[Rfam]
RNA sequence: AAAUAGCCCUGAUAGAGGCGAUAUCCUUUUUGUAGAGCCUUUUCGGCGAAACAAAAAGAUAAAGCCGAAAGCAGGAUAAAGC
Numbered sequence: 001a002a003a004u005a006g007c008c009c010u011g012a013u014a015g016a017g018g019c020g021a022u023a024u025c026c027u028u029u030u031u032g033u034a035g036a037g038c039c040u041u042u043u044c045g046g047c048g049a050a051a052c053a054a055a056a057a058g059a060u061a062a063a064g065c066c067g068a069a070a071g072c073a074g075g076a077u078a079a080a081g082c
Stems, first nucleotide, its partner, number of pairs: 009074003013070001018065002023060003029055005037047003